[Rfam]
RNA sequence: UGGAGGACUGAGAAGGUAAGGCAGUUAUCCUGUACUGGUUCUUACUGGUUAUAGCCUCCAAGAUUAAAAUGGUGCAAAAGCAACCCUGAUUCCUCUCCUAACUUGAGGGGAAACAAUACUGCCUUUGCAUAUAAAGG
Numbered sequence: 001u002g003g004a005g006g007a008c009u010g011a012g013a014a015g016g017u018a019a020g021g022c023a024g025u026u027a028u029c030c031u032g033u034a035c036u037g038g039u040u041c042u043u044a045c046u047g048g049u050u051a052u053a054g055c056c057u058c059c060a061a062g063a064u065u066a067a068a069a070u071g072g073u074g075c076a077a078a079a080g081c082a083a084c085c086c087u088g089a090u091u092c093c094u095c096u097c098c099u100a101a102c103u104u105g106a107g108g109g110g111a112a113a114c115a116a117u118a119c120u121g122c123c124u125u126u127g128c129a130u131a132u133a134a135a136g137g
Base pairs, nucleotide, nucleotide: 002059003058004057005056006055015046016045017044018043019040020039022037023036024035025034073129074128075127077125078124080122081121082120088114090112093110094109095108096107